L4-Archaeoglobi ribosomal protein leades: a 97-nucleotide RNA.

[Rfam]
RNA sequence: CUGAGGACCGCGUUCGGGUCACUUGCGGAACGCAACACCCGAUCUCCCUUCUCGCGCCCGGACGGGCGCUGACGGAGGGGGAGCGCGUCACCAUCAG
Numbered sequence: 001c002u003g004a005g006g007a008c009c010g011c012g013u014u015c016g017g018g019u020c021a022c023u024u025g026c027g028g029a030a031c032g033c034a035a036c037a038c039c040c041g042a043u044c045u046c047c048c049u050u051c052u053c054g055c056g057c058c059c060g061g062a063c064g065g066g067c068g069c070u071g072a073c074g075g076a077g078g079g080g081g082a083g084c085g086c087g088u089c090a091c092c093a094u095c096a097g
Base pairs, nucleotide, nucleotide: 001097002096003095004094009087010086011085012084013083015041016040017039018038023035024034025033026032027031043082044081045080046079047078048077049076050075051074
Rfam classes the family as a cis-regulatory leader.